Description: The family of this 200-nucleotide sequence from Dichanthelium oligosanthes is "MIR1435 microRNA precursor family".
[Rfam]
RNA sequence: UAGCUUUGUCCUAAAUUAAACUUGUCUAACUUUGACCAAAUUUAUAGAAAAAUAUAAUAACAUCUACAAUGCCAAAUAAAUUGGCUAUCAAAACAUAUUUCAUGGUGGAUUCAAUUAAACUUAUUUGAUGUUGUUAAUGUUAUUAUGUUUAUCUAUAAACCCGGUCAAAGUUAGACAAGUUUGACUUAGGACAAAACUAA
Numbered sequence: 001u002a003g004c005u006u007u008g009u010c011c012u013a014a015a016u017u018a019a020a021c022u023u024g025u026c027u028a029a030c031u032u033u034g035a036c037c038a039a040a041u042u043u044a045u046a047g048a049a050a051a052a053u054a055u056a057a058u059a060a061c062a063u064c065u066a067c068a069a070u071g072c073c074a075a076a077u078a079a080a081u082u083g084g085c086u087a088u089c090a091a092a093a094c095a096u097a098u099u100u101c102a103u104g105g106u107g108g109a110u111u112c113a114a115u116u117a118a119a120c121u122u123a124u125u126u127g128a129u130g131u132u133g134u135u136a137a138u139g140u141u142a143u144u145a146u147g148u149u150u151a152u153c154u155a156u157a158a159a160c161c162c163g164g165u166c167a168a169a170g171u172u173a174g175a176c177a178a179g180u181u182u183g184a185c186u187u188a189g190g191a192c193a194a195a196a197c198u199a200a
Stems, first nucleotide, its partner, number of pairs: 005195005011189004016184011031169005045155004050150003055145003059141005066134003073127007